[Rfam]
RNA sequence: UCUCAGGCUGUGACCCUCUAAAGGGAAGCACUUUCUGUUACUUGAAAGAACAAAAGUCGCGUCCCUUUAGAGUGCUACCGUUUGAGA
Dot-bracket structure: (((((.((.(((.(.(((.(((((((.((..(((...(.............).)))..)).))))))).))).).))).)).)))))
The record is an 87-nucleotide sequence from Callithrix jacchus, which matches "mir-515 microRNA precursor family" in Rfam. Its family is annotated with RISC complex and miRNA-mediated post-transcriptional gene silencing in the Gene Ontology. For this family Rfam cites "Identification of hundreds of conserved and nonconserved human microRNAs" (Bentwich et al., Nat Genet, 2005). Its Rfam clan is "mir-290 clan". The organism belongs to Callithrix, within Eukaryota. Rfam 15.1 lists 1,056 matches to the family in 27 species.